[Rfam]
RNA sequence: AUUCCCUGACGACUACGAGCACAUGCAUGAAGCAGAAGGCUUCAUUUGGUGACCCCGAUGUGAGGGUUAGGGAAU
Numbered sequence: 001a002u003u004c005c006c007u008g009a010c011g012a013c014u015a016c017g018a019g020c021a022c023a024u025g026c027a028u029g030a031a032g033c034a035g036a037a038g039g040c041u042u043c044a045u046u047u048g049g050u051g052a053c054c055c056c057g058a059u060g061u062g063a064g065g066g067u068u069a070g071g072g073a074a075u
Stems, first nucleotide, its partner, number of pairs: 003073008027045007
Rous sarcoma virus (RSV) primer binding site (PBS): a 75-nucleotide sequence from Alpharetrovirus avirousar. It is one of the family's seed sequences. Gene Ontology term of the family: regulation of reverse transcription. From the family's description: This family represents a structured region around the Rous sarcoma virus primer binding site (PBS). This region is known to be required for the efficient initiation of reverse transcription.